Shown here is a 65-nucleotide RNA sequence from Erinaceus europaeus, a member of the family "Selenocysteine insertion sequence 1". It scores 40 bits against the family's covariance model.
RNA sequence: GUGUGUGAAUGAUAACUACUGACGAAAGAGUCAGUGACUCAGUCUGUGGUUGGAUGUAUCCACAC
Number, nucleotide and partner (000 for none) at each position: 001g065002u064003g063004u062005g061006u000007g000008a000009a000010u000011g000012a000013u000014a051015a050016c049017u048018a047019c046020u000021g044022a043023c042024g000025a000026a000027a000028g000029a039030g038031u037032c000033a000034g000035u000036g000037a031038c030039u029040c000041a000042g023043u022044c021045u000046g019047u018048g017049g016050u015051u014052g000053g000054a000055u000056g000057u000058a000059u000060c000061c005062a004063c003064a002065c001